[Rfam]
RNA sequence: UUUGGUGCGGUGAUGAAGCAAUUUGUGGACUAGAGUUUCUGAUCUUGGGCUCUUCUUCCCAUUAAAGUUUGACGACAAACCCUUGGCUGUCUGAGCACCUUU
Numbered sequence: 001u002u003u004g005g006u007g008c009g010g011u012g013a014u015g016a017a018g019c020a021a022u023u024u025g026u027g028g029a030c031u032a033g034a035g036u037u038u039c040u041g042a043u044c045u046u047g048g049g050c051u052c053u054u055c056u057u058c059c060c061a062u063u064a065a066a067g068u069u070u071g072a073c074g075a076c077a078a079a080c081c082c083u084u085g086g087c088u089g090u091c092u093g094a095g096c097a098c099c100u101u102u
Stems, first nucleotide, its partner, number of pairs: 004099005036074001038072002043067001045065004